[Rfam]
RNA sequence: ACAAUUUAACAGGGGUGCUGAGCAAUCGGCUGAGAAGAAGGGAAUUGGCCCUUCUAACCCUUAAACCUGAUCCGGGUAAUGCCGGCGUAGGGAGAAUGUCUUGGCAUUUU
Numbered sequence: 001a002c003a004a005u006u007u008a009a010c011a012g013g014g015g016u017g018c019u020g021a022g023c024a025a026u027c028g029g030c031u032g033a034g035a036a037g038a039a040g041g042g043a044a045u046u047g048g049c050c051c052u053u054c055u056a057a058c059c060c061u062u063a064a065a066c067c068u069g070a071u072c073c074g075g076g077u078a079a080u081g082c083c084g085g086c087g088u089a090g091g092g093a094g095a096a097u098g099u100c101u102u103g104g105c106a107u108u109u110u
Stems, first nucleotide, its partner, number of pairs: 006098001010094001011061004017030005037054005066091004072085004
RNA: TPP riboswitch aptamer (THI element)
Organism: Leadbettera azotonutricia